The record is a 128-nucleotide sequence from Staphylococcus warneri, which matches "Staphylococcus sRNA sau-59" in Rfam. The literature on the family includes a 2010 paper in J Mol Med (Berl) by Abu-Qatouseh et al., "Identification of differentially expressed small non-protein-coding RNAs in Staphylococcus aureus displaying both the normal and the small-colony variant phenotype". Rfam's curators put it in the seed alignment. The base pairs follow the family's consensus structure, which was predicted with mfold. By type it is a small RNA. NCBI's taxonomy places the organism under Bacteria, Bacillati, Caryophanales, Staphylococcus, Staphylococcus warneri.
RNA sequence: UCAUCUUCUUGAAUAUCAACAAUAUUUUUUACUUUUUCUUUAAAUUUAUCCCUUUUAACUCUAAUUCUUUCUAAAUCAACACUUCUUCUUGUUUUACGUGCAUAUUCUGUUGUCUUAUCUUGUAGUUG
Numbered sequence: 001u002c003a004u005c006u007u008c009u010u011g012a013a014u015a016u017c018a019a020c021a022a023u024a025u026u027u028u029u030u031a032c033u034u035u036u037u038c039u040u041u042a043a044a045u046u047u048a049u050c051c052c053u054u055u056u057a058a059c060u061c062u063a064a065u066u067c068u069u070u071c072u073a074a075a076u077c078a079a080c081a082c083u084u085c086u087u088c089u090u091g092u093u094u095u096a097c098g099u100g101c102a103u104a105u106u107c108u109g110u111u112g113u114c115u116u117a118u119c120u121u122g123u124a125g126u127u128g
Stems, first nucleotide, its partner, number of pairs: 019049001021047002025043002031037001056128005062122003078093004100110003